Iron response element II: a 31-nucleotide RNA sequence from Erithacus rubecula. Rfam describes the family as follows. IRE, TFRC, SLC40A1, SDHB, SLC11A2, CDC42BPA, ACO2, ALAS2_H.SAPIENS, CDC14A, EPAS1, ALAS2, qoxD, Hao1, NDUFS1, transferrin, Aconitate. The base pairs follow the family's consensus structure, which is taken from published work. A search with the family's covariance model found it, with a score of 33 bits. The family's RNA type in Rfam is cis-regulatory element.
RNA sequence: GAAUAUUCAGGGUCAGAGUACUCUAAUAUUU
Number, nucleotide and partner (000 for none) at each position: 001g031002a030003a029004u028005a027006u026007u025008c000009a024010g023011g022012g021013u020014c018015a000016g000017a000018g014019u000020a013021c012022u011023c010024u009025a007026a006027u005028a004029u003030u002031u001